[Rfam]
About this RNA:
A member of the RNA family "Bacterial large subunit ribosomal RNA" from planctomycete str. 670, 529 nucleotides of a longer RNA.
RNA sequence: UACUAAGGGCGCAUGGGGGAUGCCUAGGCGUGAGAAGGCGAUGAAGGGCGUGGAAGACUGCGAAAAGCUGAGGGAAGUUGUCAAACGAACUCUGAUCCUCAGAUACCCGAAUUAGCAAGAGCUGAAUCCAUAGGCUCUUGCGGCGAACGCGGCGAACUGAAACAUCUCAGUAACCGUAGGAAGAGAAAGAAAACUCGAUUCCGUAAGUAGCGGCGAGCGAAAGCGGAUUAGCCCAAACCAUGAGGGUUUUCCCUUGUGGGGUUGUAGGACCUUUAUAUCGACUUGAUUCGUCAGCUGAACGUUCUGGAAAGGACGACCAGAGGGGGUGACAGUCCCGUAAGCGUACAUGAAUCAAGCGUGAAGGACACCUGAGUAGGUCGGGUCACGUGGAACCCUGACUGAAUCUACGGGGACCAUCCCGUAAGGCUAAAUACUCUCUCACGACCGAUAGUGAACAAGUAGGGCGACCGAAAGGUGAGAAGAACCCCGGUAGGGGAGGAAUGUGAACCUGAAACCAUGUGCCUACAAG
Numbered sequence: 001u002a003c004u005a006a007g008g009g010c011g012c013a014u015g016g017g018g019g020a021u022g023c024c025u026a027g028g029c030g031u032g033a034g035a036a037g038g039c040g041a042u043g044a045a046g047g048g049c050g051u052g053g054a055a056g057a058c059u060g061c062g063a064a065a066a067g068c069u070g071a072g073g074g075a076a077g078u079u080g081u082c083a084a085a086c087g088a089a090c091u092c093u094g095a096u097c098c099u100c101a102g103a104u105a106c107c108c109g110a111a112u113u114a115g116c117a118a119g120a121g122c123u124g125a126a127u128c129c130a131u132a133g134g135c136u137c138u139u140g141c142g143g144c145g146a147a148c149g150c151g152g153c154g155a156a157c158u159g160a161a162a163c164a165u166c167u168c169a170g171u172a173a174c175c176g177u178a179g180g181a182a183g184a185g186a187a188a189g190a191a192a193a194c195u196c197g198a199u200u201c202c203g204u205a206a207g208u209a210g211c212g213g214c215g216a217g218c219g220a221a222a223g224c225g226g227a228u229u230a231g232c233c234c235a236a237a238c239c240a241u242g243a244g245g246g247u248u249u250u251c252c253c254u255u256g257u258g259g260g261g262u263u264g265u266a267g268g269a270c271c272u273u274u275a276u277a278u279c280g281a282c283u284u285g286a287u288u289c290g291u292c293a294g295c296u297g298a299a300c301g302u303u304c305u306g307g308a309a310a311g312g313a314c315g316a317c318c319a320g321a322g323g324g325g326g327u328g329a330c331a332g333u334c335c336c337g338u339a340a341g342c343g344u345a346c347a348u349g350a351a352u353c354a355a356g357c358g359u360g361a362a363g364g365a366c367a368c369c370u371g372a373g374u375a376g377g378u379c380g381g382g383u384c385a386c387g388u389g390g391a392a393c394c395c396u397g398a399c400u401g402a403a404u405c406u407a408c409g410g411g412g413a414c415c416a417u418c419c420c421g422u423a424a425g426g427c428u429a430a431a432u433a434c435u436c437u438c439u440c441a442c443g444a445c446c447g448a449u450a451g452u453g454a455a456c457a458a459g460u461a462g463g464g465c466g467a468c469c470g471a472a473a474g475g476u477g478a479g480a481a482g483a484a485c486c487c488c489g490g491u492a493g494g495g496g497a498g499g500a501a502u503g504u505g506a507a508c509c510u511g512a513a514a515c516c517a518u519g520u521g522c523c524u525a526c527a528a529g
Base pairs, nucleotide, nucleotide: 007524008523009522010521011520012519013518014517015516016515022509023475024474027446028445029443030442031441032440033439034438035437036435037434038144039143046108047107048106049062050061051060068102069101070100071099072098073097074096077090078089079088115141116140117139118138119137120136121135122134123133148179149177150176151175152174159166160165189196190195199431200227201226202225203224204223210218211217230428231427232426233425238259239258240257241256242255243254244253266370267369268368270364271363272362273361274360280357282356283355284354285353286352287351288350289349290348291347294342295341296340300315301314302313303312304311318322324336325335326334376400377399378398379397380396381395382394407422408421409420410419411418462469463468485496486495487494488493
NCBI's taxonomy places the organism under Bacteria, Planctomycetota, Planctomycetia, Planctomycetales, Planctomycetaceae. The sequence is in the family's curated seed alignment.